[Rfam]
RNA sequence: AAAAUGAAUCGGCUUAAUCUCAUAUUGAGAGCGGAGGAACCAAUUUUUGGGGCUAAUCCUGCAGGAAGCAGGAGGGAUGAGAAUGAUCUUUCGCCAUCCUGCCCGUCAGCUAACUUCGUCGGCUAAAGCGAGUGAGGUC
Number, nucleotide and partner (000 for none) at each position: 001a000002a000003a000004a000005u000006g000007a000008a000009u000010c000011g124012g123013c122014u121015u000016a000017a000018u030019c029020u028021c000022a000023u000024a000025u000026u000027g000028a020029g019030a018031g119032c118033g117034g116035a115036g114037g000038a000039a000040c000041c049042a048043a000044u000045u000046u000047u000048u042049g041050g104051g103052g102053c000054u000055a000056a000057u000058c072059c071060u070061g069062c000063a000064g000065g000066a000067a000068g000069c061070a060071g059072g058073a000074g000075g099076g098077a097078u096079g000080a000081g000082a000083a000084u000085g000086a000087u000088c000089u000090u000091u000092c000093g000094c000095c000096a078097u077098c076099c075100u000101g000102c052103c051104c050105g000106u000107c000108a000109g000110c000111u000112a000113a000114c036115u035116u034117c033118g032119u031120c000121g014122g013123c012124u011125a000126a000127a000128g000129c000130g000131a000132g000133u000134g000135a000136g000137g000138u000139c000
RNA: c-di-AMP riboswitch aptamer (ydaO/yuaA leader)